RNA sequence: ACACGAGAAGGGAGGUGGUUCGGCAGAUGAGUUGCAACCGGACGCGUGAGGUGGCUGCGGCCUAGGAGGCCGACGUCACAGCGUGAUGCCGGCGCCGCCGGCCAAUCCCAAGCAGUCACCCGACCCGCGGGCUGUCGGUACGUCCGACCGACCCCCCUCGCGCCGCACGGCGCGACCGGGGCCAAGGCCCGCGGGUCGUCUGCG
Numbered sequence: 001a002c003a004c005g006a007g008a009a010g011g012g013a014g015g016u017g018g019u020u021c022g023g024c025a026g027a028u029g030a031g032u033u034g035c036a037a038c039c040g041g042a043c044g045c046g047u048g049a050g051g052u053g054g055c056u057g058c059g060g061c062c063u064a065g066g067a068g069g070c071c072g073a074c075g076u077c078a079c080a081g082c083g084u085g086a087u088g089c090c091g092g093c094g095c096c097g098c099c100g101g102c103c104a105a106u107c108c109c110a111a112g113c114a115g116u117c118a119c120c121c122g123a124c125c126c127g128c129g130g131g132c133u134g135u136c137g138g139u140a141c142g143u144c145c146g147a148c149c150g151a152c153c154c155c156c157c158u159c160g161c162g163c164c165g166c167a168c169g170g171c172g173c174g175a176c177c178g179g180g181g182c183c184a185a186g187g188c189c190c191g192c193g194g195g196u197c198g199u200c201u202g203c204g
Stems, first nucleotide, its partner, number of pairs: 015058005060103001062101002065098001068096003072093001121198013134152006
Shown here is a 204-nucleotide RNA from Streptomyces radiopugnans, a member of the family "Actinobacteria sRNA Ms_IGR-5". The family's RNA type in Rfam is small RNA. It scores 79 bits against the family's covariance model. Taxonomically the source falls in Streptomyces (Bacteria, Bacillati, Actinomycetes, Kitasatosporales).